[Rfam]
Rfam assigns this 171-nucleotide RNA sequence from Oceanobacillus zhaokaii to the family "glmS glucosamine-6-phosphate activated ribozyme aptamer". This entry contains a glucosamine-6-phosphate activated ribozyme that is found in the mRNA for GlmS. GlmS is an enzyme that uses fructose-6-phosphate and glutamine to generate glucosamine-6-phosphate. The ribozyme catalyses self cleavage of the glmS mRNA that is thought to regulate GlmS activity.

RNA sequence: GUAAACUAUAAAGCGCCAGGACUAUUUUCUGACCGGAAGUGAAAAUAGUUGACGAGGUGGGGGUUAUCGAACGAUUCGGCGGAUGCCUCCCGACUGCACAUCUCAGUUGAUUGGUUUUGUUCUAAAACAAUAAGGCGACUUAUUGCACAAAGGGAUAAAACAAGAUGUCAA
Number, nucleotide and partner (000 for none) at each position: 001g000002u000003a000004a000005a000006c000007u000008a000009u000010a000011a000012a000013g000014c000015g000016c000017c000018a000019g000020g050021a049022c048023u047024a046025u045026u044027u043028u000029c041030u000031g000032a000033c000034c000035g000036g000037a000038a000039g000040u000041g029042a000043a027044a026045a025046u024047a023048g022049u021050u020051g000052a000053c000054g000055a000056g000057g000058u000059g090060g089061g088062g087063g086064u000065u000066a000067u079068c078069g077070a076071a000072c000073g000074a000075u000076u070077c069078g068079g067080c000081g000082g000083a000084u000085g000086c063087c062088u061089c060090c059091c109092g108093a107094c106095u105096g104097c000098a000099c000100a000101u000102c000103u000104c096105a095106g094107u093108u092109g091110a000111u000112u000113g000114g161115u160116u159117u158118u157119g156120u155121u000122c000123u000124a000125a000126a000127a000128c145129a144130a143131u142132a141133a140134g139135g000136c000137g000138a000139c134140u133141u132142a131143u130144u129145g128146c000147a000148c000149a000150a000151a000152g000153g000154g000155a120156u119157a118158a117159a116160a115161c114162a000163a000164g000165a000166u000167g000168u000169c000170a000171a000
Rfam classes the family as a riboswitch. Taxonomically the source falls in Oceanobacillus (Bacteria, Bacillati, Bacilli, Bacillaceae).